Shown here is a 181-nucleotide RNA from Esox lucius, a member of the family "Small nucleolar RNA SNORA23". The members of this family belong to the H/ACA class of snoRNAs which are thought to guide the sites of modification of uridines to pseudouridines. This family includes human snoRNA ACA23 (SNORA23) and mouse snoMBI-1. ACA23 is predicted to guide the pseudouridylation of residue U3737 and U4331 of 28S rRNA. The literature on the family includes a 2001 paper in EMBO J by Huttenhofer et al., "RNomics: an experimental approach that identifies 201 candidates for novel, small, non-messenger RNAs in mouse". The family's consensus secondary structure was predicted with RNAalifold. A search with the family's covariance model found it, with a score of 90 bits. The organism belongs to Esox, within Eukaryota.
RNA sequence: GUGGGCCGGUGUGCGUGGUUGCAGUCUGCGUCAUGUGCCGCCGCCAGGCCGUGUCUUACGGCCUGUCGGUGGUGCUCACUCCUCACACCUGCGGCCGCAGAGCACCUGGAGAUCAUAGUACUGGCUCUGUGACGUCUCUCUGACUCUUACCGCUGGCCAGCCUCCAUACUCUCCUACAAAC
Dot-bracket structure: ............(((..............(...((((((((.(.(((..(((.....)))..))).).))))))..))...).......)))...............(((((........((((((..(((..(((.....)))......))).)))))).........))))).......